[Rfam]
RNA: mir-7 microRNA precursor family
RNA sequence: UGUUUUGAAUACUUUGGAAGACUAGUGAUUUUGUUGUUGUGAACACAUUAGUCAGACAACAAGUCACAGUCUGCCUUAAUAUUUAAAAUG
Numbered sequence: 001u002g003u004u005u006u007g008a009a010u011a012c013u014u015u016g017g018a019a020g021a022c023u024a025g026u027g028a029u030u031u032u033g034u035u036g037u038u039g040u041g042a043a044c045a046c047a048u049u050a051g052u053c054a055g056a057c058a059a060c061a062a063g064u065c066a067c068a069g070u071c072u073g074c075c076u077u078a079a080u081a082u083u084u085a086a087a088a089u090g
Stems, first nucleotide, its partner, number of pairs: 002089007010081002013078001016075002019072005025067007033060006